Overview: Rfam assigns this 57-nucleotide sequence from Mycolicibacterium chitae to the family "F6 TB sRNA". A reference for the family is Arnvig and Young (2009), "Identification of small RNAs in Mycobacterium tuberculosis", Mol Microbiol. By type it is a small RNA. The match comes from Rfam's covariance-model search (60 bits). Lineage of the source: Bacteria > Actinomycetota > Mycobacteriales > Mycobacterium > Mycobacterium (subgen. Mycolicibacterium). The base pairs follow the family's consensus structure, which is taken from published work.

RNA sequence: UGGUUGGCUCCGUGUUGCCGUCUGACCCCCCGACCCGACGGCAACACGGGCCAUCCU
Numbered sequence: 001u002g003g004u005u006g007g008c009u010c011c012g013u014g015u016u017g018c019c020g021u022c023u024g025a026c027c028c029c030c031c032g033a034c035c036c037g038a039c040g041g042c043a044a045c046a047c048g049g050g051c052c053a054u055c056c057u
Base pairs, nucleotide, nucleotide: 002056003055005053007051008050010049011048012047013046014045015044016043017042018041019040020039021038022037